RNA sequence: UUCUUAUCAAGAAAGACCGAGGGAUAGGGCCCUGUGACGUCUUAGCAACCAUGUAAAAGCUUGGUGCUAACUCCCUUCCUGCACCAUAUAGCAGGAAAAGAUAAGAA
Numbered sequence: 001u002u003c004u005u006a007u008c009a010a011g012a013a014a015g016a017c018c019g020a021g022g023g024a025u026a027g028g029g030c031c032c033u034g035u036g037a038c039g040u041c042u043u044a045g046c047a048a049c050c051a052u053g054u055a056a057a058a059g060c061u062u063g064g065u066g067c068u069a070a071c072u073c074c075c076u077u078c079c080u081g082c083a084c085c086a087u088a089u090a091g092c093a094g095g096a097a098a099a100g101a102u103a104a105g106a107a
Stems, first nucleotide, its partner, number of pairs: 001107008013043005021032003026076004044068004049064003053060002072099001077096006
The family of this 107-nucleotide sequence from Pontibacter diazotrophicus is "SAM riboswitch aptamer (S box leader)". The base pairs follow the family's consensus structure, which is taken from published work. The match comes from Rfam's covariance-model search (80 bits).